[Rfam]
RNA sequence: UUAAAUCGAAGAGGUUGCGACCGACAUAAUUAGAUCAAUCGAACAGCUGUUACUGUGUAGACGUUGAUCGAAAGGGGAGGUCGCCGAGGUACUGAUAAUAACAGUUAUUGGUGUACCGGGACGUAAUUCAAUAGAUUACGGACUGUCGUGAAUCAGUUUUCACGGAGAGCUUUGAAUCAU
Dot-bracket structure: .....((((((.....((((((..(.......(((((((.......................)))))))......)..))))))...((((((((((((....))))))))..))))((..(((((((.....)))))))..)).(((((((......)))))))....)))))).....
The record is a 180-nucleotide sequence from Acetilactobacillus jinshanensis, which matches "Lysine riboswitch aptamer" in Rfam. A search with the family's covariance model found it, with a score of 106 bits. The family's consensus secondary structure is taken from published work. Gene Ontology term of the family: lysine biosynthetic process. Lineage of the source: Bacteria > Bacillati > Bacillota > Lactobacillales > Acetilactobacillus.